This 99-nucleotide RNA from Phoenix dactylifera belongs to the Rfam family "MIR319 microRNA precursor family". It scores 79 bits against the family's covariance model. The family has 11 seed sequences and 168 matches in Rfam 15.1. The organism belongs to Phoenix, within Eukaryota.

RNA sequence: CAGAAAUGGGGGCUCCUUUGAGCCCAAAACAAUGCUCGGAUGUUUCUUCCUAUCUACGUCUGAUCGGUUGUUUUGGACUGAAGGGAGCUCCUAAUUCUU
Numbered sequence: 001c002a003g004a005a006a007u008g009g010g011g012g013c014u015c016c017u018u019u020g021a022g023c024c025c026a027a028a029a030c031a032a033u034g035c036u037c038g039g040a041u042g043u044u045u046c047u048u049c050c051u052a053u054c055u056a057c058g059u060c061u062g063a064u065c066g067g068u069u070g071u072u073u074u075g076g077a078c079u080g081a082a083g084g085g086a087g088c089u090c091c092u093a094a095u096u097c098u099u
Stems, first nucleotide, its partner, number of pairs: 007093012021079002024076008